[Rfam]
RNA sequence: CCCCACUGCCCUCCUUGGGCGUUUCCUCCCUAAGACUUGGGCCGCCAUUUGGGCGGCCUCUUUCUUUUUCGGGU
Numbered sequence: 001c002c003c004c005a006c007u008g009c010c011c012u013c014c015u016u017g018g019g020c021g022u023u024u025c026c027u028c029c030c031u032a033a034g035a036c037u038u039g040g041g042c043c044g045c046c047a048u049u050u051g052g053g054c055g056g057c058c059u060c061u062u063u064c065u066u067u068u069u070c071g072g073g074u
Stems, first nucleotide, its partner, number of pairs: 008020004039059008

The record is a 74-nucleotide RNA sequence from Labrys okinawensis, which matches "Makes More Granules Regulator RNA (mmgR)" in Rfam. NCBI's taxonomy places the organism under Bacteria, Pseudomonadati, Hyphomicrobiales, Xanthobacteraceae, Labrys. Rfam describes the family as follows. SuhB later renamed mmgR (makes more granules regulator) was a putative non-coding RNA found multiple times in the Agrobacterium tumefaciens genome and related alpha-proteobacteria. Other non-coding RNAs uncovered in the same analysis include: speF, ybhL, metA, and serC.Several studies inSinorhizobium meliloti showed that suhB element is indeed a non-coding RNA:firstly it was detected on Northern blot and called Sm8RNA, secondly in an RNAseq study referred to as SmelC689.The mutant phenotype's (strain lacking the small RNA) cytoplasm contains higher content of polyhydroxybutyrate (PBH)storage granules than wild type strain. By type it is a small RNA. A search with the family's covariance model found it, with a score of 65 bits. The base pairs follow the family's consensus structure. Rfam 15.1 lists 1,791 matches to the family in 918 species.